Annotation:
The record is a 365-nucleotide RNA from Candidatus Thiodiazotropha endolucinida, which matches "Bacterial RNase P class A" in Rfam. Rfam classes the family as a ribozyme.

RNA sequence: GGAGUCAGCCGGACAGCCGCUGUGUCGAAUGAUGCAGAGGAAAGUCCGGGCUCCGACGGGCUGGGUGCCAGGUAACGCCUGGGGGGCGCAAGCCUACGGAAAGUGCCACAGAAAACAUACCGCCAUCGGCUCAGGCUGUUGGUAAGGGUGAAAUGGUGCGGUAAGAGCGCACCGCAACGCUGGUAACAGCGCUGGCAGGGUAAACCCCACCCGGAGCAAGACCAAAUAGAGGGACGGAUGUGCCAUGGUGCAUAUCGAGUGCGGCCCGCACUGUCCCUGGGUAGGUUGCUUGAGGUGUGUGGUGACGCAUAUCCCAGAUGAAUGGCUGUCCUCGACAGAACCCGGCUUACAGGCUGACUCCCGCU
Numbered sequence: 001g002g003a004g005u006c007a008g009c010c011g012g013a014c015a016g017c018c019g020c021u022g023u024g025u026c027g028a029a030u031g032a033u034g035c036a037g038a039g040g041a042a043a044g045u046c047c048g049g050g051c052u053c054c055g056a057c058g059g060g061c062u063g064g065g066u067g068c069c070a071g072g073u074a075a076c077g078c079c080u081g082g083g084g085g086g087c088g089c090a091a092g093c094c095u096a097c098g099g100a101a102a103g104u105g106c107c108a109c110a111g112a113a114a115a116c117a118u119a120c121c122g123c124c125a126u127c128g129g130c131u132c133a134g135g136c137u138g139u140u141g142g143u144a145a146g147g148g149u150g151a152a153a154u155g156g157u158g159c160g161g162u163a164a165g166a167g168c169g170c171a172c173c174g175c176a177a178c179g180c181u182g183g184u185a186a187c188a189g190c191g192c193u194g195g196c197a198g199g200g201u202a203a204a205c206c207c208c209a210c211c212c213g214g215a216g217c218a219a220g221a222c223c224a225a226a227u228a229g230a231g232g233g234a235c236g237g238a239u240g241u242g243c244c245a246u247g248g249u250g251c252a253u254a255u256c257g258a259g260u261g262c263g264g265c266c267c268g269c270a271c272u273g274u275c276c277c278u279g280g281g282u283a284g285g286u287u288g289c290u291u292g293a294g295g296u297g298u299g300u301g302g303u304g305a306c307g308c309a310u311a312u313c314c315c316a317g318a319u320g321a322a323u324g325g326c327u328g329u330c331c332u333c334g335a336c337a338g339a340a341c342c343c344g345g346c347u348u349a350c351a352g353g354c355u356g357a358c359u360c361c362c363g364c365u
Stems, first nucleotide, its partner, number of pairs: 001361010011350001012330007020037007042348003046345005051216004058267004063212005068082005083097001084095004098207002103205002105201003120147002122143004127138004155173006174196001175194002178191005220287004230278006258272005294313008

A search with the family's covariance model found it, with a score of 342 bits. From the family's description: Ribonuclease P (RNase P) is a ubiquitous endoribonuclease, found in archaea, bacteria and eukarya as well as chloroplasts and mitochondria. The base pairs follow the family's consensus structure, which is taken from published work.